The record is a 54-nucleotide RNA from Aerococcus sp. HMSC10H05, which matches "Ribosomal protein L13 leader" in Rfam.
The source organism's lineage runs through Bacteria, Bacillati, Bacillota, Aerococcaceae and Aerococcus.
This family is a putative r-protein leader autoregulatory structure found in B. subtilis and other low-GC Gram-positive bacteria. It is located in the 5' untranslated regions of mRNAs encoding the L13-S9 (rplM-rpsI) ribosomal protein operon.
Its family is annotated with regulation of gene expression in the Gene Ontology.
For this family Rfam cites "Diverse mechanisms for regulating ribosomal protein synthesis in Escherichia coli" (Zengel and Lindahl, Prog Nucleic Acid Res Mol Biol, 1994).
RNA sequence: GGUAUUGUUUGCCCCAUGAUAGGCCCCGGAAACCAAUUAUGAAUCGAACAAUCA
Numbered sequence: 001g002g003u004a005u006u007g008u009u010u011g012c013c014c015c016a017u018g019a020u021a022g023g024c025c026c027c028g029g030a031a032a033c034c035a036a037u038u039a040u041g042a043a044u045c046g047a048a049c050a051a052u053c054a
Base pairs, nucleotide, nucleotide: 006050007049008048009047010046011045015041016040017039018038019037020036022034023033